Background:
The record is a 71-nucleotide RNA sequence from Labrys okinawensis, which matches "terC RNA" in Rfam. The match comes from Rfam's covariance-model search (50 bits).
RNA sequence: GCACCAGGCCGGGCCCCUCUGGCAGUUCCCGAAGCGUCGAGCUCCGGCAACUGUGAUGUCGGACUGGAGCA
Numbered sequence: 001g002c003a004c005c006a007g008g009c010c011g012g013g014c015c016c017c018u019c020u021g022g023c024a025g026u027u028c029c030c031g032a033a034g035c036g037u038c039g040a041g042c043u044c045c046g047g048c049a050a051c052u053g054u055g056a057u058g059u060c061g062g063a064c065u066g067g068a069g070c071a
Stems, first nucleotide, its partner, number of pairs: 006065002009062004022054006029047003